A member of the RNA family "Glutamine riboswitch aptamer (glnA leader)" from Synechococcus sp. PCC 6312, 57 nucleotides long.
The match comes from Rfam's covariance-model search (56 bits).
For this family Rfam cites "Bacterial aptamers that selectively bind glutamine" (Ames and Breaker, RNA Biol, 2011).
RNA sequence: GUCGUUCAUCUCCAUUUUUGGAAGACGGAAGUAGGGAUUAUCCCGAAGGAACGCGCC
Numbered sequence: 001g002u003c004g005u006u007c008a009u010c011u012c013c014a015u016u017u018u019u020g021g022a023a024g025a026c027g028g029a030a031g032u033a034g035g036g037a038u039u040a041u042c043c044c045g046a047a048g049g050a051a052c053g054c055g056c057c
Base pairs, nucleotide, nucleotide: 003053004052005051006050007049009025010024011023013021028054034044035043036042